[Rfam]
RNA sequence: CACCAGGGGUAAACCGCAGAUACUCUGCCCCUAAAAGCAGCCCGAAAGGGUAAAUGGUGUUCCUGGCUCACGCCGAACUAAUUGCUAGUCCCCCUCGGGGGGCGACAUCCUCAAACUGACGGGAAACUUCUAAAGCUGAGCGCUACCAAGCAGGCGUCGAGAGACGACUGUGGCCGGGGUAAUGACCUAGGGUACGGUAACAACGCGCCAGAUAUGUGAACGAUCCGCAGCCAAGCUCCUAAGGCGCCAUUGCGCACGGAGAAGGUUCAGAGACUUGACGGGGAUGGGUGGGGCAACAUCCGAAUUGUCCUGCUUAAGAUAAAGUCCGGCCUACUGUGAAAGCAGUAA
Numbered sequence: 001c002a003c004c005a006g007g008g009g010u011a012a013a014c015c016g017c018a019g020a021u022a023c024u025c026u027g028c029c030c031c032u033a034a035a036a037g038c039a040g041c042c043c044g045a046a047a048g049g050g051u052a053a054a055u056g057g058u059g060u061u062c063c064u065g066g067c068u069c070a071c072g073c074c075g076a077a078c079u080a081a082u083u084g085c086u087a088g089u090c091c092c093c094c095u096c097g098g099g100g101g102g103c104g105a106c107a108u109c110c111u112c113a114a115a116c117u118g119a120c121g122g123g124a125a126a127c128u129u130c131u132a133a134a135g136c137u138g139a140g141c142g143c144u145a146c147c148a149a150g151c152a153g154g155c156g157u158c159g160a161g162a163g164a165c166g167a168c169u170g171u172g173g174c175c176g177g178g179g180u181a182a183u184g185a186c187c188u189a190g191g192g193u194a195c196g197g198u199a200a201c202a203a204c205g206c207g208c209c210a211g212a213u214a215u216g217u218g219a220a221c222g223a224u225c226c227g228c229a230g231c232c233a234a235g236c237u238c239c240u241a242a243g244g245c246g247c248c249a250u251u252g253c254g255c256a257c258g259g260a261g262a263a264g265g266u267u268c269a270g271a272g273a274c275u276u277g278a279c280g281g282g283g284a285u286g287g288g289u290g291g292g293g294c295a296a297c298a299u300c301c302g303a304a305u306u307g308u309c310c311u312g313c314u315u316a317a318g319a320u321a322a323a324g325u326c327c328g329g330c331c332u333a334c335u336g337u338g339a340a341a342g343c344a345g346u347a348a
Base pairs, nucleotide, nucleotide: 005032006031007030008029009028010027011026013024106286107285108284109283110282112280117229118228120227121226122225123224128220129219130218230266231265237260238259239258244255245254246253247252270327272326273325274324275323276322288313289312290311291310292309293308294307295306296305333346334345335344336343337342
RNA: Group I catalytic intron